[Rfam]
RNA sequence: CCUUUAUCGAGAGCGGCCGAGGGAUCUGGCCCGGCGACGCCGCAGCAACCAGCUUUCAUCUAAGCGGGUGCUCCAUCCAGCCGGUAGCAGCCACGAUGACGCGACCCGGAAAGAUAGAGG
Numbered sequence: 001c002c003u004u005u006a007u008c009g010a011g012a013g014c015g016g017c018c019g020a021g022g023g024a025u026c027u028g029g030c031c032c033g034g035c036g037a038c039g040c041c042g043c044a045g046c047a048a049c050c051a052g053c054u055u056u057c058a059u060c061u062a063a064g065c066g067g068g069u070g071c072u073c074c075a076u077c078c079a080g081c082c083g084g085u086a087g088c089a090g091c092c093a094c095g096a097u098g099a100c101g102c103g104a105c106c107c108g109g110a111a112a113g114a115u116a117g118a119g120g
Stems, first nucleotide, its partner, number of pairs: 001120008013043005021032003026080004044072004049068002052065003076112001081109004
Dot-bracket structure: ((((((((....(((((...(((..[[[[)))......)))))((((.((.(((........))).))))))...(]]]]((((.....................))))..)))))))))
This 120-nucleotide RNA from Truepera radiovictrix belongs to the Rfam family "SAM riboswitch aptamer (S box leader)". Lineage of the source: Bacteria > Thermotogati > Deinococci > Trueperaceae > Truepera radiovictrix. The match comes from Rfam's covariance-model search (70 bits).